[Rfam]
RNA: MIR1846 microRNA precursor family
RNA sequence: CCGCUCUCUCCCAAUGAGCCGCCGGAUCUCCCAGUGAGGAGGCCGGGGCCACUGAAUCCGGUGACCCCGGUCUCCUCGCCGGCGGAUCCGGCGCAAAGACGCC
Numbered sequence: 001c002c003g004c005u006c007u008c009u010c011c012c013a014a015u016g017a018g019c020c021g022c023c024g025g026a027u028c029u030c031c032c033a034g035u036g037a038g039g040a041g042g043c044c045g046g047g048g049c050c051a052c053u054g055a056a057u058c059c060g061g062u063g064a065c066c067c068c069g070g071u072c073u074c075c076u077c078g079c080c081g082g083c084g085g086a087u088c089c090g091g092c093g094c095a096a097a098g099a100c101g102c103c
Stems, first nucleotide, its partner, number of pairs: 008101001009099002018094002021092009031082002034079015050063005